A member of the RNA family "Small nucleolar RNA snoR109" from Coffea arabica, 116 nucleotides long. The match comes from Rfam's covariance-model search (78 bits). Pairs were carried over by alignment from the consensus structure, which was predicted with WAR. By type it is an H/ACA-box small nucleolar RNA. The source organism's lineage runs through Eukaryota, Streptophyta, Euphyllophyta, asterids and Coffea.

[Rfam]
RNA sequence: UGGCUGUAGCUAAAUGAAUGAAUAGGAGUUAACUGGCCGGUUGUUGUUUGCGGGAUUCCUUCCAACUGGAGGGAUCUCGCAUGUCGACAUAUCUGCUUACCGAACUCCUUACAUUU
Number, nucleotide and partner (000 for none) at each position: 001u000002g000003g000004c000005u000006g000007u000008a000009g000010c000011u000012a000013a000014a000015u000016g000017a000018a000019u000020g000021a000022a000023u000024a109025g108026g107027a106028g105029u104030u103031a000032a000033c000034u000035g097036g096037c095038c000039g093040g092041u091042u000043g088044u087045u086046g085047u000048u000049u000050g000051c000052g000053g000054g000055a000056u000057u000058c000059c000060u000061u000062c000063c000064a000065a000066c000067u000068g000069g000070a000071g000072g000073g000074a000075u000076c000077u000078c000079g000080c000081a000082u000083g000084u000085c046086g045087a044088c043089a000090u000091a041092u040093c039094u000095g037096c036097u035098u000099a000100c000101c000102g000103a030104a029105c028106u027107c026108c025109u024110u000111a000112c000113a000114u000115u000116u000